[Rfam]
RNA sequence: AUAUUCUUAGGCCUGGUUUUGUGGCAAGAACUGAGUAGUUCGUUAACUCGCUACCCGGUUCUUGUCACAAGACCGAGUAUAUGAAUAU
Numbered sequence: 001a002u003a004u005u006c007u008u009a010g011g012c013c014u015g016g017u018u019u020u021g022u023g024g025c026a027a028g029a030a031c032u033g034a035g036u037a038g039u040u041c042g043u044u045a046a047c048u049c050g051c052u053a054c055c056c057g058g059u060u061c062u063u064g065u066c067a068c069a070a071g072a073c074c075g076a077g078u079a080u081a082u083g084a085a086u087a088u
Base pairs, nucleotide, nucleotide: 001088002087003086004085005084006083008081009080011078012077014075015074016073017072018071019070020069021068023066024065025064026063027062028061029060030059031058032057033056035054036053